[Rfam]
RNA sequence: AGACCCCGCGCGGGAGAGUCUUUCGGUCCGAGAGGGCCCAAGGCGCCGAAGGAGCAAUACCUCCCCGGAAUCUCUCAGGCACACGUACCGUGCGGACGAG
Numbered sequence: 001a002g003a004c005c006c007c008g009c010g011c012g013g014g015a016g017a018g019u020c021u022u023u024c025g026g027u028c029c030g031a032g033a034g035g036g037c038c039c040a041a042g043g044c045g046c047c048g049a050a051g052g053a054g055c056a057a058u059a060c061c062u063c064c065c066c067g068g069a070a071u072c073u074c075u076c077a078g079g080c081a082c083a084c085g086u087a088c089c090g091u092g093c094g095g096a097c098g099a100g
Stems, first nucleotide, its partner, number of pairs: 006095008020043004045080003048076002052074003058067001
RNA: Glycine riboswitch aptamer
Organism: Streptomyces tardus